The record is a 135-nucleotide sequence from Flavonifractor sp. An306, which matches "FMN riboswitch aptamer (RFN element)" in Rfam. About the family: The RFN element is a highly conserved domain that is found frequently in the 5'-untranslated regions of prokaryotic mRNAs that encode for flavin mononucleotide (FMN) biosynthesis and transport proteins.
RNA sequence: AACUGUCUUCAGGGCAGGGUGAAAAUCCCGAUCGGCGGUAUAGUCCGCGAGCCGUAUGGCUGACCCGGUGGAACUCCGGGACCGACAGUGACGCGCACAGACCCGGGCGCGAAGUCUGGAUGGAAGAAGAUGUGU
Numbered sequence: 001a002a003c004u005g006u007c008u009u010c011a012g013g014g015c016a017g018g019g020u021g022a023a024a025a026u027c028c029c030g031a032u033c034g035g036c037g038g039u040a041u042a043g044u045c046c047g048c049g050a051g052c053c054g055u056a057u058g059g060c061u062g063a064c065c066c067g068g069u070g071g072a073a074c075u076c077c078g079g080g081a082c083c084g085a086c087a088g089u090g091a092c093g094c095g096c097a098c099a100g101a102c103c104c105g106g107g108c109g110c111g112a113a114g115u116c117u118g119g120a121u122g123g124a125a126g127a128a129g130a131u132g133u134g135u
Stems, first nucleotide, its partner, number of pairs: 004132007017029003033084002035048004043082002051060003064080005086118003